[Rfam]
RNA sequence: GCACUUCAGCAAACCCUUGUCCAUAAGCCCAAGAGCUGGACAAGGGUCAAGAUUGUGCCUAGAGCGACUCAAAGUAUAUCCAGACGAGUCUUCUUUUCGUUGGAGCUUGUCCCUACAACUUUGACACAAUA
Numbered sequence: 001g002c003a004c005u006u007c008a009g010c011a012a013a014c015c016c017u018u019g020u021c022c023a024u025a026a027g028c029c030c031a032a033g034a035g036c037u038g039g040a041c042a043a044g045g046g047u048c049a050a051g052a053u054u055g056u057g058c059c060u061a062g063a064g065c066g067a068c069u070c071a072a073a074g075u076a077u078a079u080c081c082a083g084a085c086g087a088g089u090c091u092u093c094u095u096u097u098c099g100u101u102g103g104a105g106c107u108u109g110u111c112c113c114u115a116c117a118a119c120u121u122u123g124a125c126a127c128a129a130u131a
Stems, first nucleotide, its partner, number of pairs: 001058004013047007021039002069124006083111007093103002
RNA: Small nucleolar RNA SNORA55